[Rfam]
RNA sequence: ACAAUGAUACUCCCUUGCCGUCGUAGUCCGAGCGUUCAAAGCGUCGCAGGCAACGAGCAUGGCCGUGUGAGAACCACGCGGGGGUGAAAGUCCCGUGG
Numbered sequence: 001a002c003a004a005u006g007a008u009a010c011u012c013c014c015u016u017g018c019c020g021u022c023g024u025a026g027u028c029c030g031a032g033c034g035u036u037c038a039a040a041g042c043g044u045c046g047c048a049g050g051c052a053a054c055g056a057g058c059a060u061g062g063c064c065g066u067g068u069g070a071g072a073a074c075c076a077c078g079c080g081g082g083g084g085u086g087a088a089a090g091u092c093c094c095g096u097g098g
Stems, first nucleotide, its partner, number of pairs: 012095001013062002016059003063081003067077003082094003
RNA: pemK RNA